[Rfam]
RNA sequence: CCCAGCAGUGGUCACCCUCCAGACAGAUGCAUUGCCGUGAUGGUUACACUGCUGGGAGAGGAAUGUCCUCUCUUUUUUCUCCAGUUGCCUCUAACAGUGUUCUGGUGGCAUCUGGCACUGGUGCAGGGUAGAACUGUGCAUCUUUAAGAUUGUGCUAAGCAUUCACUUUGGCUUAGUUCUAGUGUGGGAGCACACACA
Numbered sequence: 001c002c003c004a005g006c007a008g009u010g011g012u013c014a015c016c017c018u019c020c021a022g023a024c025a026g027a028u029g030c031a032u033u034g035c036c037g038u039g040a041u042g043g044u045u046a047c048a049c050u051g052c053u054g055g056g057a058g059a060g061g062a063a064u065g066u067c068c069u070c071u072c073u074u075u076u077u078u079c080u081c082c083a084g085u086u087g088c089c090u091c092u093a094a095c096a097g098u099g100u101u102c103u104g105g106u107g108g109c110a111u112c113u114g115g116c117a118c119u120g121g122u123g124c125a126g127g128g129u130a131g132a133a134c135u136g137u138g139c140a141u142c143u144u145u146a147a148g149a150u151u152g153u154g155c156u157a158a159g160c161a162u163u164c165a166c167u168u169u170g171g172c173u174u175a176g177u178u179c180u181a182g183u184g185u186g187g188g189a190g191c192a193c194a195c196a197c198a
Base pairs, nucleotide, nucleotide: 001056002055003054004053005052006051007050008049009048011047012046015043016042018040019039020037022035024034065134066133068131069130071128072127073126079123081121082120083119084116085115086114087113095107096106098104136193137192138191139190141188142187143186152179154177156175157174158173159172160171

Rfam assigns this 198-nucleotide sequence from Molossus molossus to the family "Small nucleolar RNA SNORA74". For this family Rfam cites "The family of box ACA small nucleolar RNAs is defined by an evolutionarily conserved secondary structure and ubiquitous sequence elements essential for RNA accumulation" (Ganot et al., Genes Dev, 1997). The family is grouped with related families in Rfam's "SNORA74 clan". Rfam describes the family as follows. U19 belongs to the H/ACA class of snoRNAs. snoRNAs bind a number of proteins (including dyskerin, Gar1p and Nop10p in the case of the H/ACA class) to form snoRNP complexes. This class are thought to guide the sites of modification of uridines to pseudouridines by forming direct base pairing interactions with substrate RNAs. Targets may include ribosomal and spliceosomal RNAs but the exact functions of many snoRNAs, including U19, are not confirmed. The source organism's lineage runs through Eukaryota, Bilateria, Chordata, Sarcopterygii and Molossus. By type it is an H/ACA-box small nucleolar RNA.